[Rfam]
RNA: Selenocysteine insertion sequence 1
Organism: Ficedula albicollis
RNA sequence: UGCAGACCCAUGAAGGCCUGCACUGAAGACAGCCGCUGUUGGUGCAGGCUGGAUGCCUCUCCUGCA
Numbered sequence: 001u002g003c004a005g006a007c008c009c010a011u012g013a014a015g016g017c018c019u020g021c022a023c024u025g026a027a028g029a030c031a032g033c034c035g036c037u038g039u040u041g042g043u044g045c046a047g048g049c050u051g052g053a054u055g056c057c058u059c060u061c062c063u064g065c066a
Base pairs, nucleotide, nucleotide: 001066002065003064004063005062015050016049017048018047019046020045021044022043023042024041030038031037032036